[Rfam]
RNA: Streptomyces-metK RNA
Organism: Streptomyces sp. SLBN-118
RNA sequence: GCGAGACGGGUGGACCGCUGCGGGAGAGCGCCGGAUAAACUGCUCAUGGAACGUCGCGGGGCGCAGCCCCCGGCCGGUCCGCCAAUGAUCAGCCAGCAGCCGCUGCAACCCCAGGGAG
Numbered sequence: 001g002c003g004a005g006a007c008g009g010g011u012g013g014a015c016c017g018c019u020g021c022g023g024g025a026g027a028g029c030g031c032c033g034g035a036u037a038a039a040c041u042g043c044u045c046a047u048g049g050a051a052c053g054u055c056g057c058g059g060g061g062c063g064c065a066g067c068c069c070c071c072g073g074c075c076g077g078u079c080c081g082c083c084a085a086u087g088a089u090c091a092g093c094c095a096g097c098a099g100c101c102g103c104u105g106c107a108a109c110c111c112c113a114g115g116g117a118g
Base pairs, nucleotide, nucleotide: 048080049079050078052076053075056074059071060070061069094105095104096103097102